[Rfam]
RNA sequence: GGGUGCUCUGGAUCUUUCUGUCCUGAGCAUGUUGCAGGUCAGAAAUGUGAAAGCCCCGAAUUAAUUUUCAUUAACCCGGGGCUAACCUGCUAGCCUCAACAACUACAGGUUAGUUCUCUGCUGGCCGAAAGGCAAGGAGUAAGAACGAUG
Numbered sequence: 001g002g003g004u005g006c007u008c009u010g011g012a013u014c015u016u017u018c019u020g021u022c023c024u025g026a027g028c029a030u031g032u033u034g035c036a037g038g039u040c041a042g043a044a045a046u047g048u049g050a051a052a053g054c055c056c057c058g059a060a061u062u063a064a065u066u067u068u069c070a071u072u073a074a075c076c077c078g079g080g081g082c083u084a085a086c087c088u089g090c091u092a093g094c095c096u097c098a099a100c101a102a103c104u105a106c107a108g109g110u111u112a113g114u115u116c117u118c119u120g121c122u123g124g125c126c127g128a129a130a131g132g133c134a135a136g137g138a139g140u141a142a143g144a145a146c147g148a149u150g
Stems, first nucleotide, its partner, number of pairs: 001057003005054003009051001012048002015045006022038003027033001058077001061074001062070001064068001078117005085110004091105003121143002125139001